Rfam assigns this 62-nucleotide RNA from Theropithecus gelada to the family "U7 small nuclear RNA". A search with the family's covariance model found it, with a score of 66 bits. About the family: Animal histone pre-mRNAs are spliced by a different mechanism than nuclear pre-mRNAs and self-splicing introns.
[Rfam]
RNA sequence: UAGUGUUACAGCUCUUUUAUAAUUUGUCUAGCAGGUUUUCUGUUUUUUAGCAGAAACCCUCC
Dot-bracket structure: .................................((.((((((((....)))))))).))...